[Rfam]
RNA: Glycine riboswitch aptamer
Organism: Eoetvoesiella caeni
RNA sequence: AGACAGCAUUCUGGAGAGACUCGCGCCGCCGCAUCAACCAUGCCGGCAGCGGGCGCCGAAGGUGAAUCCCGCAACUCGGGGAAACUCUCAGGCACAAAGGACAGAAGGGCGGUC
Numbered sequence: 001a002g003a004c005a006g007c008a009u010u011c012u013g014g015a016g017a018g019a020c021u022c023g024c025g026c027c028g029c030c031g032c033a034u035c036a037a038c039c040a041u042g043c044c045g046g047c048a049g050c051g052g053g054c055g056c057c058g059a060a061g062g063u064g065a066a067u068c069c070c071g072c073a074a075c076u077c078g079g080g081g082a083a084a085c086u087c088u089c090a091g092g093c094a095c096a097a098a099g100g101a102c103a104g105a106a107g108g109g110c111g112g113u114c
Stems, first nucleotide, its partner, number of pairs: 007108001009106005020053004055093003058089002062087001064085001068080002